[Rfam]
RNA sequence: ACGCGCUGGCGGGACUCGGUGAAAUUCCGAACCGGCGGUGAUGCGCUGCUCCGGCGGCGAUGAGCCCGCGACCCGGCUGCUCCGAUCGGAGCGGACGGUGGACCCGGUGAGAUUCCGGGGCCGACGGUUGACCGGCACGGUGUUGCCGAUCAGACAGUCCGGAUGGGAGACAGCGCGC
Numbered sequence: 001a002c003g004c005g006c007u008g009g010c011g012g013g014a015c016u017c018g019g020u021g022a023a024a025u026u027c028c029g030a031a032c033c034g035g036c037g038g039u040g041a042u043g044c045g046c047u048g049c050u051c052c053g054g055c056g057g058c059g060a061u062g063a064g065c066c067c068g069c070g071a072c073c074c075g076g077c078u079g080c081u082c083c084g085a086u087c088g089g090a091g092c093g094g095a096c097g098g099u100g101g102a103c104c105c106g107g108u109g110a111g112a113u114u115c116c117g118g119g120g121c122c123g124a125c126g127g128u129u130g131a132c133c134g135g136c137a138c139g140g141u142g143u144u145g146c147c148g149a150u151c152a153g154a155c156a157g158u159c160c161g162g163a164u165g166g167g168a169g170a171c172a173g174c175g176c177g178c
Base pairs, nucleotide, nucleotide: 003176004175005174006173007172008171010169017029018028019027033123034122035069036068037067038066064121065120073098074097103119104118105117106116107115125161126160127159
RNA: FMN riboswitch aptamer (RFN element)
Organism: Mangrovihabitans endophyticus